[Rfam]
RNA sequence: AUUGCAUUUCCUGGAAUUAAGUUGACUGGGUAGCCAUCAAAGCACGGCUUGCAAAUCGCUUUAUAAGUCAGCAACUUGAUUCCAGCAAAUGCGAUUC
Numbered sequence: 001a002u003u004g005c006a007u008u009u010c011c012u013g014g015a016a017u018u019a020a021g022u023u024g025a026c027u028g029g030g031u032a033g034c035c036a037u038c039a040a041a042g043c044a045c046g047g048c049u050u051g052c053a054a055a056u057c058g059c060u061u062u063a064u065a066a067g068u069c070a071g072c073a074a075c076u077u078g079a080u081u082c083c084a085g086c087a088a089a090u091g092c093g094a095u096u097c
Stems, first nucleotide, its partner, number of pairs: 001095009011085014026071003029064001032060003